[Rfam]
RNA sequence: CUGAAUCCACUGAUAGACCAUCGAACAGUUUACUGUUGUUCUUUGGUUUGCACUAGGAUGCAAGAAGAAAAAAAAUCCCUGUCUGUCUUUGUGGUGGCCCAGAUUGAAUAAGAGAUUACAUCU
Numbered sequence: 001c002u003g004a005a006u007c008c009a010c011u012g013a014u015a016g017a018c019c020a021u022c023g024a025a026c027a028g029u030u031u032a033c034u035g036u037u038g039u040u041c042u043u044u045g046g047u048u049u050g051c052a053c054u055a056g057g058a059u060g061c062a063a064g065a066a067g068a069a070a071a072a073a074a075a076u077c078c079c080u081g082u083c084u085g086u087c088u089u090u091g092u093g094g095u096g097g098c099c100c101a102g103a104u105u106g107a108a109u110a111a112g113a114g115a116u117u118a119c120a121u122c123u
Base pairs, nucleotide, nucleotide: 002062003061005059006058007057008056011052012051014050015049016048017047018046019045023041024040025039026038027037028036029035079102080101081100083097084096085095086094087093
This 123-nucleotide sequence from Erinaceus europaeus belongs to the Rfam family "Small nucleolar RNA SNORA31". Rfam links the family to the GO terms RNA processing and nucleolus. A search with the family's covariance model found it, with a score of 85 bits. Rfam 15.1 lists 2,094 matches to the family in 626 species. Lineage of the source: Eukaryota > Amniota > Eutheria > Erinaceidae > Erinaceus. Rfam describes the family as follows. ACA31 (SNORA31) belongs to the H/ACA class of snoRNAs which are thought to guide the sites of modification of uridines to pseudouridines. ACA31 is predicted to guide the pseudouridylation of U3713 in 28S rRNA and U218 in 18S rRNA. This family includes the mouse homologue snoMBI-161.